About this RNA: Rfam assigns this 78-nucleotide RNA sequence from Platysternon megacephalum to the family "mir-16 microRNA precursor family".

RNA sequence: CGCCGCCAGCAGCAGCGCAGAAGUAAGGGUGGCAUGGUAUGGUAUUGCACCCUUACUUCUGUGCUGCUGCUGGCGGAG
Numbered sequence: 001c002g003c004c005g006c007c008a009g010c011a012g013c014a015g016c017g018c019a020g021a022a023g024u025a026a027g028g029g030u031g032g033c034a035u036g037g038u039a040u041g042g043u044a045u046u047g048c049a050c051c052c053u054u055a056c057u058u059c060u061g062u063g064c065u066g067c068u069g070c071u072g073g074c075g076g077a078g
Stems, first nucleotide, its partner, number of pairs: 001078001003076001005074003011068008020058001022057008